[Rfam]
RNA sequence: UGCACGAGUAGAAGCGUUCAGCGGUGCGGCACAGCCUGGCAGGCUGGCCACCGUCGGAAAUUGCUCAGCGU
Dot-bracket structure: .....(((((....[..((.((((((......................)))))).]))...))))).....

The record is a 71-nucleotide RNA from Comamonas aquatica, which matches "Xanthine riboswitch aptamer (NMT1 RNA)" in Rfam. The base pairs follow the family's consensus structure, which is taken from published work. The match comes from Rfam's covariance-model search (48 bits).